Record summary:
Rfam assigns this 66-nucleotide RNA from Erpetoichthys calabaricus to the family "Small nucleolar RNA SNORD98". Rfam 15.1 lists 571 matches to the family in 543 species. NCBI's taxonomy places the organism under Eukaryota, Chordata, Craniata, Polypteridae, Erpetoichthys. A reference for the family is Galardi et al. (2002), "Purified box C/D snoRNPs are able to reproduce site-specific 2'-O-methylation of target RNA in vitro", Mol Cell Biol. It is annotated as a C/D-box small nucleolar RNA. The match comes from Rfam's covariance-model search (61 bits). Pairs were carried over by alignment from the consensus structure.
[Rfam]
RNA sequence: GGGAAGUAAUGUUUAAAAACCCAUUCCAUUUCUGAAGCAAGUUGUGGAAUAAAACAUACUGAUCCC
Numbered sequence: 001g002g003g004a005a006g007u008a009a010u011g012u013u014u015a016a017a018a019a020c021c022c023a024u025u026c027c028a029u030u031u032c033u034g035a036a037g038c039a040a041g042u043u044g045u046g047g048a049a050u051a052a053a054a055c056a057u058a059c060u061g062a063u064c065c066c
Stems, first nucleotide, its partner, number of pairs: 001066004